The family of this 86-nucleotide RNA sequence from Sulfuricella sp. is "c-di-GMP-I riboswitch aptamer". Rfam describes the family as follows. GEMM was predicted in a large-scale screen for bacterial structured RNA regulatory elements. Genes associated with GEMM are involved in a diverse array of functions, including chemotaxis regulation, signal transduction, secretion and chitin.
RNA sequence: UUCUGUAAAGGGCCAUCCUGACCGAAAGGCUGGGUCGCAAAGUCCCGAUCUAAAAAGUGCCGCUUCAUGAUCGAGGGAUUGCCGGA
Number, nucleotide and partner (000 for none) at each position: 001u000002u000003c000004u000005g000006u000007a000008a000009a000010g000011g000012g038013c037014c000015a000016u000017c033018c032019u000020g030021a000022c029023c028024g000025a000026a000027a000028g023029g022030c020031u000032g018033g017034g000035u000036c000037g013038c012039a000040a000041a080042g079043u078044c077045c076046c075047g000048a071049u070050c069051u000052a000053a000054a000055a065056a064057g063058u062059g000060c000061c000062g058063c057064u056065u055066c000067a000068u000069g050070a049071u048072c000073g000074a000075g046076g045077g044078a043079u042080u041081g000082c000083c000084g000085g000086a000